[Rfam]
RNA sequence: CCAAAGGCUCUUUUAAGAGCCACCCACCUUUUCAGAAAAAGGAGCU
Numbered sequence: 001c002c003a004a005a006g007g008c009u010c011u012u013u014u015a016a017g018a019g020c021c022a023c024c025c026a027c028c029u030u031u032u033c034a035g036a037a038a039a040a041g042g043a044g045c046u
Base pairs, nucleotide, nucleotide: 006021007020008019009018010017011016
The record is a 46-nucleotide RNA sequence from Atractosteus spatula, which matches "Histone 3' UTR stem-loop" in Rfam. Lineage of the source: Eukaryota > Bilateria > Chordata > Gnathostomata > Atractosteus. The mRNAs of metazoan histone genes lack a poly-A tail. 3' end processing occurs at a site between a highly conserved stem-loop (modelled by this family) and a purine rich region around 20 nts downstream (the histone downstream element, or HDE). It scores 41 bits against the family's covariance model.